Overview: This 140-nucleotide RNA sequence belongs to the Rfam family "RAGATH-24 RNA".

[Rfam]
RNA sequence: UUGACAGUCCAAAAACCACCUGCCCUCGGGAGAUACCCGAGGUGUGACCUUCGCCGUUUAUCGGUCGCCUCCCAGAUUCAUCGGGGGGCGGGGAGAGAGGGUCAGCGAUUCGUUCGCUUGAUGACGUGGGAAUAGGACAC
Numbered sequence: 001u002u003g004a005c006a007g008u009c010c011a012a013a014a015a016c017c018a019c020c021u022g023c024c025c026u027c028g029g030g031a032g033a034u035a036c037c038c039g040a041g042g043u044g045u046g047a048c049c050u051u052c053g054c055c056g057u058u059u060a061u062c063g064g065u066c067g068c069c070u071c072c073c074a075g076a077u078u079c080a081u082c083g084g085g086g087g088g089c090g091g092g093g094a095g096a097g098a099g100g101g102u103c104a105g106c107g108a109u110u111c112g113u114u115c116g117c118u119u120g121a122u123g124a125c126g127u128g129g130g131a132a133u134a135g136g137a138c139a140c
Stems, first nucleotide, its partner, number of pairs: 007138004016129004024042007046103007104118005
The sequence is in the family's curated seed alignment.